[Rfam]
RNA sequence: AACCACUCGCUAGGCGAGUGGUUCAAGAGAAGCCUAAUGGCGAUGAUGUAGACAGAAAAACUCCCUUUGCUUAAAAUGAAAGUGCGGUCAGCCAACUGCACAAAAGAAAGCAAAGG
Numbered sequence: 001a002a003c004c005a006c007u008c009g010c011u012a013g014g015c016g017a018g019u020g021g022u023u024c025a026a027g028a029g030a031a032g033c034c035u036a037a038u039g040g041c042g043a044u045g046a047u048g049u050a051g052a053c054a055g056a057a058a059a060a061c062u063c064c065c066u067u068u069g070c071u072u073a074a075a076a077u078g079a080a081a082g083u084g085c086g087g088u089c090a091g092c093c094a095a096c097u098g099c100a101c102a103a104a105a106g107a108a109a110g111c112a113a114a115g116g
Base pairs, nucleotide, nucleotide: 001023002022003021004020005019006018007017008016009015010014029044032041033040034039064116065115066114067113068112069111070110071109072108082101083100084099085098086097087096088095
Dot-bracket structure: ((((((((((...)))))))))).....(..(((....)))..)...................(((((((((.........(((((((......)))))))......)))))))))